[Rfam]
RNA: Bacterial RNase P class A
RNA sequence: GAAGCAGGUUGGACAAUCGCGAUUAAAUUCGAGGAAAGUCCGGACUCCUUAGGGUAGGAUAGCGGCUAACAGCCGUCCACUGCAAAGUGAGGAAUAGGGCCACAGAGACGAGGCUAUGUUGUGGGCAGCAAUGCUGCACUGAUACGGCUACUUCCGUAUGGCGCCUUCGGGCAACAAUAUAGAGUGAAACGCGGUAACCUCUAUCUGGAGCAACUUCAAGAAGCAUGCGUUAAGGGCGACCCGUCCGAGUAUGCGGGUAGAAGGCUUGAGCUGAUUAGCAAUAAUCAGUCUAGAUGAAUGAUUGUCGACACACGUUUACAGAAUCCGGCUUAUAGACCUGCUUCAUUU
Numbered sequence: 001g002a003a004g005c006a007g008g009u010u011g012g013a014c015a016a017u018c019g020c021g022a023u024u025a026a027a028u029u030c031g032a033g034g035a036a037a038g039u040c041c042g043g044a045c046u047c048c049u050u051a052g053g054g055u056a057g058g059a060u061a062g063c064g065g066c067u068a069a070c071a072g073c074c075g076u077c078c079a080c081u082g083c084a085a086a087g088u089g090a091g092g093a094a095u096a097g098g099g100c101c102a103c104a105g106a107g108a109c110g111a112g113g114c115u116a117u118g119u120u121g122u123g124g125g126c127a128g129c130a131a132u133g134c135u136g137c138a139c140u141g142a143u144a145c146g147g148c149u150a151c152u153u154c155c156g157u158a159u160g161g162c163g164c165c166u167u168c169g170g171g172c173a174a175c176a177a178u179a180u181a182g183a184g185u186g187a188a189a190c191g192c193g194g195u196a197a198c199c200u201c202u203a204u205c206u207g208g209a210g211c212a213a214c215u216u217c218a219a220g221a222a223g224c225a226u227g228c229g230u231u232a233a234g235g236g237c238g239a240c241c242c243g244u245c246c247g248a249g250u251a252u253g254c255g256g257g258u259a260g261a262a263g264g265c266u267u268g269a270g271c272u273g274a275u276u277a278g279c280a281a282u283a284a285u286c287a288g289u290c291u292a293g294a295u296g297a298a299u300g301a302u303u304g305u306c307g308a309c310a311c312a313c314g315u316u317u318a319c320a321g322a323a324u325c326c327g328g329c330u331u332a333u334a335g336a337c338c339u340g341c342u343u344c345a346u347u348u
Base pairs, nucleotide, nucleotide: 001344002343003342004341005340006339007338008337009336010335011333012306013305014304015303016302017301018300020031021030022029036331037330038329040328041327042326043325044324045210046209047208048207052242053241054240055239057206058205059204060203061202062076063075064074065073066072077091078089079088080087081086092201093200097199098198099195100194101193115183116180117179118178119177120176121175122174214263215262216261217260223254224253225252226251227250228249234246235245236244237243270289271288272287273286274285275284276283277282